[Rfam]
RNA sequence: UUGUCGGCGCAGCGCAGCGUUGGCUCUCGAACCUGGUCAGGUCCGGAAGGAAGCAGCCAUAAGGGAUGCCCAGCGGGUGCCGUUGCUCACCGGCAAUGC
Numbered sequence: 001u002u003g004u005c006g007g008c009g010c011a012g013c014g015c016a017g018c019g020u021u022g023g024c025u026c027u028c029g030a031a032c033c034u035g036g037u038c039a040g041g042u043c044c045g046g047a048a049g050g051a052a053g054c055a056g057c058c059a060u061a062a063g064g065g066a067u068g069c070c071c072a073g074c075g076g077g078u079g080c081c082g083u084u085g086c087u088c089a090c091c092g093g094c095a096a097u098g099c
Stems, first nucleotide, its partner, number of pairs: 004093004009086006015077001018075005025066004034059004042051003
Background:
This 99-nucleotide sequence from Deinobacterium chartae belongs to the Rfam family "Bacterial small signal recognition particle RNA". Rfam describes the family as follows. The signal recognition particle (SRP) is a universally conserved ribonucleoprotein involved in the co-translational targeting of proteins to membranes. Rfam classes the family as a non-coding RNA gene. Its family is annotated with SRP-dependent cotranslational protein targeting to membrane, signal sequence recognition and signal recognition particle, plasma membrane targeting in the Gene Ontology. On this family, see Rosenblad et al., Nucleic Acids Res 2003: "SRPDB: Signal Recognition Particle Database". It scores 70 bits against the family's covariance model.